[Rfam]
RNA sequence: GAAGGUCUUGGUGUGACGCGGGGAGGUUUUAGUCGGUAGGCGCCGGACCGAACUUCGGUUCGGGGCGGCGAAUCCGACACUGCCCGGGAUAGUUCCCCGGGCGUCUUUUGAAGAUUUCCUCCUCGUUAACA
Numbered sequence: 001g002a003a004g005g006u007c008u009u010g011g012u013g014u015g016a017c018g019c020g021g022g023g024a025g026g027u028u029u030u031a032g033u034c035g036g037u038a039g040g041c042g043c044c045g046g047a048c049c050g051a052a053c054u055u056c057g058g059u060u061c062g063g064g065g066c067g068g069c070g071a072a073u074c075c076g077a078c079a080c081u082g083c084c085c086g087g088g089a090u091a092g093u094u095c096c097c098c099g100g101g102c103g104u105c106u107u108u109u110g111a112a113g114a115u116u117u118c119c120u121c122c123u124c125g126u127u128a129a130c131a
Stems, first nucleotide, its partner, number of pairs: 001127002019125008032078005041070005049062005080103001082102005
A member of the RNA family "R2 RNA element" from Trachymyrmex cornetzi, 131 nucleotides long. The family's consensus secondary structure is taken from published work. The family has 15 seed sequences and 3,698 matches in Rfam 15.1. The organism belongs to Trachymyrmex, within Eukaryota. It is annotated as a cis-regulatory element. Rfam links the family to the GO term regulation of reverse transcription. From the family's description: This family represents the 3' UTR region of the R2 retrotransposable element. This family is known to interact with the R2-encoded reverse transcriptase in a reaction known as target primed reverse transcription (TPRT).